The record is a 35-nucleotide RNA from Neomonachus schauinslandi, which matches "Iron response element I" in Rfam. By type it is a cis-regulatory element. NCBI's taxonomy places the organism under Eukaryota, Metazoa, Chordata, Monachini, Neomonachus. Pairs were carried over by alignment from the consensus structure, which is taken from published work.
RNA sequence: CUGCCUCUUGCUUCAACAGUGUUUGGUCGGAACAG
Numbered sequence: 001c002u003g004c005c006u007c008u009u010g011c012u013u014c015a016a017c018a019g020u021g022u023u024u025g026g027u028c029g030g031a032a033c034a035g
Base pairs, nucleotide, nucleotide: 001035002034003033006031007030008029010028013026014025015024016023017021